[Rfam]
The record is a 122-nucleotide RNA from Mycolicibacterium chubuense, which matches "Actinobacteria sRNA Ms_IGR-7" in Rfam.
RNA sequence: CGGAAGUGCCUUUCGUGUCGCUGGCCAGAUUGCUGUGUGUCGGAACUCCAAUCAUCCCAGCUCAAGAGGCAGUUCCUCAUAUCAACACCCCGAACCCCACGCAAUUCGAUCGGUGGAUCGAG
Numbered sequence: 001c002g003g004a005a006g007u008g009c010c011u012u013u014c015g016u017g018u019c020g021c022u023g024g025c026c027a028g029a030u031u032g033c034u035g036u037g038u039g040u041c042g043g044a045a046c047u048c049c050a051a052u053c054a055u056c057c058c059a060g061c062u063c064a065a066g067a068g069g070c071a072g073u074u075c076c077u078c079a080u081a082u083c084a085a086c087a088c089c090c091c092g093a094a095c096c097c098c099a100c101g102c103a104a105u106u107c108g109a110u111c112g113g114u115g116g117a118u119c120g121a122g
Base pairs, nucleotide, nucleotide: 002076003075004074005073007071008070009069010068011067012066013065016064017063021060022059023058024057028053029052030051032049035046036045102120104118105117106116107115108114
A reference for the family is Li et al. (2013), "Identification of small RNAs in Mycobacterium smegmatis using heterologous Hfq", RNA.